[Rfam]
RNA sequence: ACUCUUGUUUCUCUUCAGAUCGUAUAAAUCUUUCACCGUUUACUAAAGAUUUCUGUGGAGAGGAACAACAAAAUUUCUAACUUUUGAUCCAUUGCAUUAGUGGGG
Numbered sequence: 001a002c003u004c005u006u007g008u009u010u011c012u013c014u015u016c017a018g019a020u021c022g023u024a025u026a027a028a029u030c031u032u033u034c035a036c037c038g039u040u041u042a043c044u045a046a047a048g049a050u051u052u053c054u055g056u057g058g059a060g061a062g063g064a065a066c067a068a069c070a071a072a073a074u075u076u077c078u079a080a081c082u083u084u085u086g087a088u089c090c091a092u093u094g095c096a097u098u099a100g101u102g103g104g105g
Stems, first nucleotide, its partner, number of pairs: 003070001005068013026052008090105001092103004
A member of the RNA family "U5 spliceosomal RNA" from Oreochromis aureus, 105 nucleotides long. The match comes from Rfam's covariance-model search (59 bits).